[Rfam]
RNA: permuted transfer-messenger RNA
Nucleotides: 214
Stems, first nucleotide, its partner, number of pairs: 001138005015128004027117003031114003037053005054099007139154004
Number, partner (000 for none) and nucleotide at each position: 001138g002137g003136c004135g005134a006000u007000a008000a009000a010000g011000u012000g013000c014000g015128c016127u017126g018125u019000g020000c021000a022000a023000u024000a025000g026000g027117c028116a029115c030000a031114a032113g033112g034000g035000a036000c037053c038052c039051g040050g041049g042000g043000g044000c045000a046000g047000u048000a049041c050040c051039c052038g053037g054099c055098g056097g057096c058095u059094c060093c061000a062000c063000c064000a065000u066000a067000a068000c069000c070000c071000c072000c073000u074000g075000a076000u077000u078000a079000c080000a081000g082000g083000g084000g085000u086000u087000u088000u089000u090000g091000a092000c093060g094059g095058g096057g097056c098055c099054g100000a101000a102000c103000c104000a105000g106000g107000a108000u109000c110000g111000a112033c113032c114031u115029g116028u117027g118000u119000u120000g121000a122000a123000a124000g125018a126017c127016a128015g129000u130000g131000u132000u133000u134005u135004u136003g137002c138001c139154c140153g141152g142151g143000c144000u145000g146000a147000g148000u149000a150000a151142c152141c153140c154139g155000u156000a157000a158000a159000a160000c161000u162000g163000u164000u165000c166000a167000a168000a169000a170000c171000a172000c173000a174000c175000a176000a177000g178000u179000g180000c181000c182000a183000a184000u185000g186000a187000u188000a189000a190000u191000g192000a193000a194000g195000c196000a197000c198000u199000c200000g201000c202000u203000g204000u205000u206000g207000c208000a209000g210000c211000g212000u213000a214000a